[Rfam]
RNA sequence: AAUUUGCGAUAUAUGUUUUAAAUAGAUAAAAUUAUAGAUGAGCAUCUCCCGAAAGUAAUAUAAGAAUGAUACUCGGUAGAUGCUCAUCUAGUGGAUCUUUUAAGGAAAAAAAGGGAGGGGGUUUUAGCCGUUAGGCGAGACAUAUGCAGUAUCGCGAUGCAAAUGUCUCGAGUCCGGCACUCCCCUAGAGUACGGGCUCUAGGGGGUCUUUUGAAGAUUUCCCCCUACCCUCGUAGAA
Numbered sequence: 001a002a003u004u005u006g007c008g009a010u011a012u013a014u015g016u017u018u019u020a021a022a023u024a025g026a027u028a029a030a031a032u033u034a035u036a037g038a039u040g041a042g043c044a045u046c047u048c049c050c051g052a053a054a055g056u057a058a059u060a061u062a063a064g065a066a067u068g069a070u071a072c073u074c075g076g077u078a079g080a081u082g083c084u085c086a087u088c089u090a091g092u093g094g095a096u097c098u099u100u101u102a103a104g105g106a107a108a109a110a111a112a113g114g115g116a117g118g119g120g121g122u123u124u125u126a127g128c129c130g131u132u133a134g135g136c137g138a139g140a141c142a143u144a145u146g147c148a149g150u151a152u153c154g155c156g157a158u159g160c161a162a163a164u165g166u167c168u169c170g171a172g173u174c175c176g177g178c179a180c181u182c183c184c185c186u187a188g189a190g191u192a193c194g195g196g197c198u199c200u201a202g203g204g205g206g207u208c209u210u211u212u213g214a215a216g217a218u219u220u221c222c223c224c225c226u227a228c229c230c231u232c233g234u235a236g237a238a
Base pairs, nucleotide, nucleotide: 035090036089037088038087039086040085041084042083043082044081045080046079047078096237097236098235100233113232114231115230117228119225120224121223127178128177129176130175136170137169138168139167140166141165142158143157145156146155147154180206181205182204183203184202
Shown here is a 238-nucleotide RNA sequence from Atta colombica, a member of the family "R2 RNA element".
The family has 15 seed sequences and 3,698 matches in Rfam 15.1.
This family represents the 3' UTR region of the R2 retrotransposable element. This family is known to interact with the R2-encoded reverse transcriptase in a reaction known as target primed reverse transcription (TPRT).
The organism belongs to Atta, within Eukaryota.
Rfam links the family to the GO term regulation of reverse transcription.
The literature on the family includes a 2004 paper in RNA by Ruschak et al., "Secondary structure models of the 3' untranslated regions of diverse R2 RNAs".